[Rfam]
RNA sequence: ACGCUGGUUAGCUCAGUGGUUACUUCCGAAAAUCUUACUGUUGAUUUCUCUCCCGUCAUGGGAUCGAACCACGGGCACCGUCCAGCGUUUUC
Numbered sequence: 001a002c003g004c005u006g007g008u009u010a011g012c013u014c015a016g017u018g019g020u021u022a023c024u025u026c027c028g029a030a031a032a033u034c035u036u037a038c039u040g041u042u043g044a045u046u047u048c049u050c051u052c053c054c055g056u057c058a059u060g061g062g063a064u065c066g067a068a069c070c071a072c073g074g075g076c077a078c079c080g081u082c083c084a085g086c087g088u089u090u091u092c
Stems, first nucleotide, its partner, number of pairs: 002087006011076004016072004024068003028064001

The record is a 92-nucleotide RNA sequence, which matches "Vault RNA" in Rfam. It is annotated as a non-coding RNA gene. The base pairs follow the family's consensus structure, which is taken from published work. About the family: This family of RNAs are found as part of the enigmatic vault ribonucleoprotein complex. The complex consists of a major vault protein (MVP), two minor vault proteins (VPARP and TEP1), and several small untranslated RNA molecules. It has been suggested that the vault complex is involved in drug resistance. The literature on the family includes a 2009 paper in Mol Biol Evol by Stadler et al., "Evolution of Vault RNAs".